[Rfam]
RNA: PyrR binding site
Organism: Thermosipho sp. 1063
RNA sequence: GUAGCCUUUAAUUUGGUCCAGUGAGGCCAAAAAGGAGAUGAGAAAAUGUCUUUAAUUUUAGUUUUUUCAGGAAUUAAAUAUGAAUAUUGGCUUCUACCGUUCUUACGGUAGAGGCCUUUUGUU
Numbered sequence: 001g002u003a004g005c006c007u008u009u010a011a012u013u014u015g016g017u018c019c020a021g022u023g024a025g026g027c028c029a030a031a032a033a034g035g036a037g038a039u040g041a042g043a044a045a046a047u048g049u050c051u052u053u054a055a056u057u058u059u060a061g062u063u064u065u066u067u068c069a070g071g072a073a074u075u076a077a078a079u080a081u082g083a084a085u086a087u088u089g090g091c092u093u094c095u096a097c098c099g100u101u102c103u104u105a106c107g108g109u110a111g112a113g114g115c116c117u118u119u120u121g122u123u
Stems, first nucleotide, its partner, number of pairs: 005035005013030006053083001055081002058078002061075001063073003089116012